[Rfam]
A member of the RNA family "Small nucleolar RNA Z13/snr52" from Trichoderma cornu-damae, 102 nucleotides long. Gene Ontology terms of the family: nucleolus and RNA processing. Taxonomically the source falls in Trichoderma (Eukaryota, leotiomyceta, Sordariomycetes, Hypocreomycetidae). The family has 42 seed sequences and 1,203 matches in Rfam 15.1. By type it is a C/D-box small nucleolar RNA.
RNA sequence: UUUUACCCUUCAUGAUGAAUUAUUGCGGAUGUAAAAUUUUUGUCACGUCGGAAAGCGCAAAACCAUGUCGAGAUUUCCGUUGCCUUCCUUCUGAUUUUCAAA
Numbered sequence: 001u002u003u004u005a006c007c008c009u010u011c012a013u014g015a016u017g018a019a020u021u022a023u024u025g026c027g028g029a030u031g032u033a034a035a036a037u038u039u040u041u042g043u044c045a046c047g048u049c050g051g052a053a054a055g056c057g058c059a060a061a062a063c064c065a066u067g068u069c070g071a072g073a074u075u076u077c078c079g080u081u082g083c084c085u086u087c088c089u090u091c092u093g094a095u096u097u098u099c100a101a102a
Base pairs, nucleotide, nucleotide: 003101004100026079027078028077029076